[Rfam]
RNA sequence: UGAAUACAGUGAUCGCUGAUAUGUAUAUGCUGGGGAUUGGCCCAGUGUUUCUACCAACUGCCUUAAGAGUUGACUACAUAGAUUUCACUAUUGUAG
Numbered sequence: 001u002g003a004a005u006a007c008a009g010u011g012a013u014c015g016c017u018g019a020u021a022u023g024u025a026u027a028u029g030c031u032g033g034g035g036a037u038u039g040g041c042c043c044a045g046u047g048u049u050u051c052u053a054c055c056a057a058c059u060g061c062c063u064u065a066a067g068a069g070u071u072g073a074c075u076a077c078a079u080a081g082a083u084u085u086c087a088c089u090a091u092u093g094u095a096g
Stems, first nucleotide, its partner, number of pairs: 020080006029046004034042001055072005

Shown here is a 96-nucleotide sequence from Lachnospiraceae bacterium M18-1, a member of the family "Purine riboswitch aptamer". The base pairs follow the family's consensus structure, which is taken from published work. For this family Rfam cites "Riboswitches Control Fundamental Biochemical Pathways in Bacillus subtilis and Other Bacteria" (Mandal et al., Cell, 2003). The source organism's lineage runs through Bacteria, Bacillati, Bacillota, Clostridia and Lachnospiraceae.